Notes:
The family of this 86-nucleotide RNA from Desulfotruncus arcticus is "c-di-GMP-I riboswitch aptamer". Taxonomically the source falls in Desulfotruncus arcticus (Bacteria, Bacillati, Clostridia, Desulfotruncus). Gene Ontology term of the family: cyclic-di-GMP binding. Pairs were carried over by alignment from the consensus structure, which is taken from published work. Rfam's curators write: GEMM was predicted in a large-scale screen for bacterial structured RNA regulatory elements. It scores 77 bits against the family's covariance model.
[Rfam]
RNA sequence: CACAAAAAAAGGUAAACCGGCUGAAAGGCCGGGACACAAAGCUAUGGGCCUAAGGCUGUUUUGGCUAUGGCUGCCAGGUUGCUUGU
Dot-bracket structure: ...........((...((((((....))))))...))..((((.((((((....((((...))))...)))..)))))))......